[Rfam]
RNA sequence: CAUGGUAAAAAGCAAUCUUGUCAAAAGACAGGGUGCGAAGCUAUGGGGCAAGGCCAUUUAUGGUUAUAACUGCCAGGUUACCAUA
Numbered sequence: 001c002a003u004g005g006u007a008a009a010a011a012g013c014a015a016u017c018u019u020g021u022c023a024a025a026a027g028a029c030a031g032g033g034u035g036c037g038a039a040g041c042u043a044u045g046g047g048g049c050a051a052g053g054c055c056a057u058u059u060a061u062g063g064u065u066a067u068a069a070c071u072g073c074c075a076g077g078u079u080a081c082c083a084u085a
Stems, first nucleotide, its partner, number of pairs: 012036002017032006039079004044075003047070001053064004
RNA: c-di-GMP-I riboswitch aptamer